[Rfam]
RNA sequence: GGCUUCCAUUGACGCAAAUCCAAUCUUGGAAUUUAAGAUGAGAAAAAAUUACCCAUUUGUAGCAAAUGCUUAUCCAUUAAGUGGGAAAAAUUCUAU
Numbered sequence: 001g002g003c004u005u006c007c008a009u010u011g012a013c014g015c016a017a018a019u020c021c022a023a024u025c026u027u028g029g030a031a032u033u034u035a036a037g038a039u040g041a042g043a044a045a046a047a048a049u050u051a052c053c054c055a056u057u058u059g060u061a062g063c064a065a066a067u068g069c070u071u072a073u074c075c076a077u078u079a080a081g082u083g084g085g086a087a088a089a090a091u092u093c094u095a096u
Base pairs, nucleotide, nucleotide: 009023010022011021052085053084054083055077056076059073060072061071062070
Overview
Shown here is a 96-nucleotide RNA sequence from Gossypium aridum, a member of the family "Plastid-rps12 3UTR RNA". The organism belongs to Gossypium, within Eukaryota. A search with the family's covariance model found it, with a score of 81 bits. The family has 1,299 seed sequences and 1,710 matches in Rfam 15.1. The family's RNA type in Rfam is cis-regulatory element. Pairs were carried over by alignment from the consensus structure, which was predicted with LocARNA. Rfam describes the family as follows. Plastid rpl20 is a non-coding RNA (ncRNA) recognised in plastids. It was found in the three prime untranslated region (3UTR) of rps12 gene, its 3UTR location sugest a role in transcript maduration. A reference for the family is Richter et al. (2023), "Retrograde signaling in plants: A critical review focusing on the GUN pathway and beyond", Plant Commun.